[Rfam]
RNA sequence: UUGAAGAAUUUGAAGACUUCAACUUGCAGACUUGAGAAUUAGAAAACAUCAACUUGCAGACUUGAAGAAUUUAGAGACUUCAACU
Numbered sequence: 001u002u003g004a005a006g007a008a009u010u011u012g013a014a015g016a017c018u019u020c021a022a023c024u025u026g027c028a029g030a031c032u033u034g035a036g037a038a039u040u041a042g043a044a045a046a047c048a049u050c051a052a053c054u055u056g057c058a059g060a061c062u063u064g065a066a067g068a069a070u071u072u073a074g075a076g077a078c079u080u081c082a083a084c085u
Base pairs, nucleotide, nucleotide: 001083002082003081004080005079006078009075010074011073012072013071014070017067018066019065020064021063025058026057027056028055032052033051034050035049036047
RNA: MIR8024 microRNA precursor family